[Rfam]
Shown here is an 83-nucleotide sequence from Rotaria magnacalcarata, a member of the family "Small nucleolar RNA SNORD53/SNORD92". It scores 48 bits against the family's covariance model. Its Rfam clan is "SNORD52 clan".

RNA sequence: CAGCAGUGAUGAAAAAAAAAGACACGGUUUCGCUUAAUAAUACUGAAUGUAUGUUAUGUUGUUUGUCUUGGCUGUCUGAGCUG
Numbered sequence: 001c002a003g004c005a006g007u008g009a010u011g012a013a014a015a016a017a018a019a020a021g022a023c024a025c026g027g028u029u030u031c032g033c034u035u036a037a038u039a040a041u042a043c044u045g046a047a048u049g050u051a052u053g054u055u056a057u058g059u060u061g062u063u064u065g066u067c068u069u070g071g072c073u074g075u076c077u078g079a080g081c082u083g
Stems, first nucleotide, its partner, number of pairs: 001083004